Shown here is a 102-nucleotide sequence from Caloramator australicus, a member of the family "Purine riboswitch aptamer".
RNA sequence: UAUAUUUUGACAUUACCUGCUCAUAUAAUCCAAGGAAUAUGGCCUUGGAGUCUCUACCGGGUGGCCGUAAACUACCCGACUAUGAGUAAGGCUUAAUAUGCU
Numbered sequence: 001u002a003u004a005u006u007u008u009g010a011c012a013u014u015a016c017c018u019g020c021u022c023a024u025a026u027a028a029u030c031c032a033a034g035g036a037a038u039a040u041g042g043c044c045u046u047g048g049a050g051u052c053u054c055u056a057c058c059g060g061g062u063g064g065c066c067g068u069a070a071a072c073u074a075c076c077c078g079a080c081u082a083u084g085a086g087u088a089a090g091g092c093u094u095a096a097u098a099u100g101c102u
Base pairs, nucleotide, nucleotide: 018088019087020086021085022084023083024082025081029049030048031047032046033045034044035043058078059077060076061075062074063073064072